[Rfam]
RNA sequence: AUGAGUAUAGCUCAGUUGGGAGAGCAUCAGACUCCCAAUCUGAGGGUCAGGGGUUCAAGUCCCCGUCCACGUA
Numbered sequence: 001a002u003g004a005g006u007a008u009a010g011c012u013c014a015g016u017u018g019g020g021a022g023a024g025c026a027u028c029a030g031a032c033u034c035c036c037a038a039u040c041u042g043a044g045g046g047u048c049a050g051g052g053g054u055u056c057a058a059g060u061c062c063c064c065g066u067c068c069a070c071g072u073a
Stems, first nucleotide, its partner, number of pairs: 001072003005068001007066001010025004027043005050064004
About this RNA
Shown here is a 73-nucleotide sequence from Turnix velox, a member of the family "tRNA". Lineage of the source: Eukaryota > Opisthokonta > Deuterostomia > Sauria > Turnix. By type it is a transfer RNA.